This 103-nucleotide RNA sequence from Rhodovulum iodosum belongs to the Rfam family "TPP riboswitch aptamer (THI element)". Pairs were carried over by alignment from the consensus structure, which is taken from published work. Vitamin B(1) in its active form thiamin pyrophosphate (TPP) is an essential coenzyme that is synthesised by coupling of pyrimidine and thiazole moieties in bacteria.
[Rfam]
RNA sequence: CGCCGUACCUCGGGGCGCCCUCGACAGGGCUGAGACGCAUCCAUGCGGACCCGUUGAACCUGAACCGGUUAGAACCGGCGGAGGGAAGGUGACUGGACAUUCU
Numbered sequence: 001c002g003c004c005g006u007a008c009c010u011c012g013g014g015g016c017g018c019c020c021u022c023g024a025c026a027g028g029g030c031u032g033a034g035a036c037g038c039a040u041c042c043a044u045g046c047g048g049a050c051c052c053g054u055u056g057a058a059c060c061u062g063a064a065c066c067g068g069u070u071a072g073a074a075c076c077g078g079c080g081g082a083g084g085g086a087a088g089g090u091g092a093c094u095g096g097a098c099a100u101u102c103u
Base pairs, nucleotide, nucleotide: 006091007090008089009088010087011053012052013051014050016047017030018029019028020027021026037046038045039044059084060083061082065078066077067076068075
Annotation
NCBI's taxonomy places the organism under Bacteria, Alphaproteobacteria, Rhodobacterales, Paracoccaceae, Rhodovulum.